[Rfam]
RNA sequence: UCCUCCUCGCGUCCACUGCCGGCCUUUAUGUGUUGAUAUAAAUCAUAAGGCACGCGGUGAAUGCCAAGAGAG
Number, nucleotide and partner (000 for none) at each position: 001u000002c000003c070004u069005c068006c000007u000008c000009g064010c063011g062012u061013c000014c059015a058016c057017u000018g055019c054020c000021g000022g000023c050024c049025u048026u000027u047028a046029u045030g044031u000032g000033u000034u000035g000036a000037u000038a000039u000040a000041a000042a000043u000044c030045a029046u028047a027048a025049g024050g023051c000052a000053c000054g019055c018056g000057g016058u015059g014060a000061a012062u011063g010064c009065c000066a000067a000068g005069a004070g003071a000072g000

Shown here is a 72-nucleotide RNA from Papilio xuthus, a member of the family "mir-124 microRNA precursor family". The literature on the family includes a 2003 paper in Genome Biol by Lai et al., "Computational identification of Drosophila microRNA genes". A search with the family's covariance model found it, with a score of 60 bits. The source organism's lineage runs through Eukaryota, Bilateria, Mandibulata, Hexapoda and Papilio.